[Rfam]
RNA sequence: GUAUAGCUUUUGAAAGCGGUUUAAUAAUACUGAAAAGGGAGUUGAAUUAUCAAUGGGUACAAUCGUAUGUCAGGACUGUCAGGGAAUUAUUGAUCAUUUUGAAGAUGAAAAGGUAUCAACUCUUUACGGUAAAUGUACUUCUUGUAAUGACGAAGAACUAGAAUAGAUGUAAAUAGAAAAGCCUGCCACUCUAUAGUAGAAGAGUGACAGGCUUUUUU
Numbered sequence: 001g002u003a004u005a006g007c008u009u010u011u012g013a014a015a016g017c018g019g020u021u022u023a024a025u026a027a028u029a030c031u032g033a034a035a036a037g038g039g040a041g042u043u044g045a046a047u048u049a050u051c052a053a054u055g056g057g058u059a060c061a062a063u064c065g066u067a068u069g070u071c072a073g074g075a076c077u078g079u080c081a082g083g084g085a086a087u088u089a090u091u092g093a094u095c096a097u098u099u100u101g102a103a104g105a106u107g108a109a110a111a112g113g114u115a116u117c118a119a120c121u122c123u124u125u126a127c128g129g130u131a132a133a134u135g136u137a138c139u140u141c142u143u144g145u146a147a148u149g150a151c152g153a154a155g156a157a158c159u160a161g162a163a164u165a166g167a168u169g170u171a172a173a174u175a176g177a178a179a180a181g182c183c184u185g186c187c188a189c190u191c192u193a194u195a196g197u198a199g200a201a202g203a204g205u206g207a208c209a210g211g212c213u214u215u216u217u218u
Base pairs, nucleotide, nucleotide: 016114017113020111021110022109028103030101032099033098034097037094054089055088056087058085060083066081140156141155142154143153177216178215179214180213181212182211183210184209185208187206188205189204190203191202
RNA: SR1 sRNA